[Rfam]
RNA sequence: UGACCCACCUGCGGUGAGGCCCCCACCCGCUGGGCGCCCCCUGGCACUCCUUCCCCGGUGCCAGGACGCGCAAAGCGGGCGGGGACCUGACCGGGACGGUGACUAUCG
Numbered sequence: 001u002g003a004c005c006c007a008c009c010u011g012c013g014g015u016g017a018g019g020c021c022c023c024c025a026c027c028c029g030c031u032g033g034g035c036g037c038c039c040c041c042u043g044g045c046a047c048u049c050c051u052u053c054c055c056c057g058g059u060g061c062c063a064g065g066a067c068g069c070g071c072a073a074a075g076c077g078g079g080c081g082g083g084g085a086c087c088u089g090a091c092c093g094g095g096a097c098g099g100u101g102a103c104u105a106u107c108g
Base pairs, nucleotide, nucleotide: 010095012093013092014091015090018087019086021084022083023082024081026079027078028077029076030075031074033071034069035068036067040065041064042063043062044061045060046059047058
A member of the RNA family "mraW RNA", 108 nucleotides long.
The base pairs follow the family's consensus structure, which is taken from published work.
It is one of the family's seed sequences.